[Rfam]
RNA sequence: GGUAACGGAUUCUAGGGUUCCGGCCUACCGGAUGGUAGGUGCCUGGUCCAAGAGGGUUCGGCCCCCGGAUAAGGGGGUUCACGGAGGGAUAAAAGCCCGGGAGAU
Numbered sequence: 001g002g003u004a005a006c007g008g009a010u011u012c013u014a015g016g017g018u019u020c021c022g023g024c025c026u027a028c029c030g031g032a033u034g035g036u037a038g039g040u041g042c043c044u045g046g047u048c049c050a051a052g053a054g055g056g057u058u059c060g061g062c063c064c065c066c067g068g069a070u071a072a073g074g075g076g077g078u079u080c081a082c083g084g085a086g087g088g089a090u091a092a093a094a095g096c097c098c099g100g101g102a103g104a105u
Base pairs, nucleotide, nucleotide: 007059008058009057010056011055012054015049016048020046021045022043023040024039025038026037027036028035060078062076063075064074065073080100082103086098087097088096